[Rfam]
RNA sequence: CCUCAGGCUCCCAGGGACACUAACAGAGCACCUGUGCCCCGGGGAGAGUGAACCGAGCUCCCUAGAGGGUUGCAGCACGCACAUGGCUGUACCUGGGAGCAGCU
Numbered sequence: 001c002c003u004c005a006g007g008c009u010c011c012c013a014g015g016g017a018c019a020c021u022a023a024c025a026g027a028g029c030a031c032c033u034g035u036g037c038c039c040c041g042g043g044g045a046g047a048g049u050g051a052a053c054c055g056a057g058c059u060c061c062c063u064a065g066a067g068g069g070u071u072g073c074a075g076c077a078c079g080c081a082c083a084u085g086g087c088u089g090u091a092c093c094u095g096g097g098a099g100c101a102g103c104u
Base pairs, nucleotide, nucleotide: 007100008099009098010097011096012095014093015092018089019088020086021085022084028080029079032075033074034073035072036070037069038068039067041063042062043061044060045059046058049055050054

A member of the RNA family "mir-8904 microRNA precursor family" from Canis lupus, 104 nucleotides long. NCBI's taxonomy places the organism under Eukaryota, Bilateria, Deuterostomia, Eutheria, Canis lupus. The family has 2 seed sequences and 207 matches in Rfam 15.1.